[Rfam]
RNA sequence: UGAAGCCAUCUCCGGAAUCGCUGUACCGCAGUGAUGAUCCCCUCGAACCCUCGAGUCUGAUGGCUGCGGCGGGGCUGC
Numbered sequence: 001u002g003a004a005g006c007c008a009u010c011u012c013c014g015g016a017a018u019c020g021c022u023g024u025a026c027c028g029c030a031g032u033g034a035u036g037a038u039c040c041c042c043u044c045g046a047a048c049c050c051u052c053g054a055g056u057c058u059g060a061u062g063g064c065u066g067c068g069g070c071g072g073g074g075c076u077g078c
Stems, first nucleotide, its partner, number of pairs: 002078001004076003
A member of the RNA family "Small nucleolar RNA MBII-202" from Aegotheles bennettii, 78 nucleotides long. Lineage of the source: Eukaryota > Gnathostomata > Sarcopterygii > Strisores > Aegotheles. Rfam 15.1 lists 745 matches to the family in 452 species. It is annotated as a C/D-box small nucleolar RNA. On this family, see Huttenhofer et al., EMBO J 2001: "RNomics: an experimental approach that identifies 201 candidates for novel, small, non-messenger RNAs in mouse". It scores 54 bits against the family's covariance model.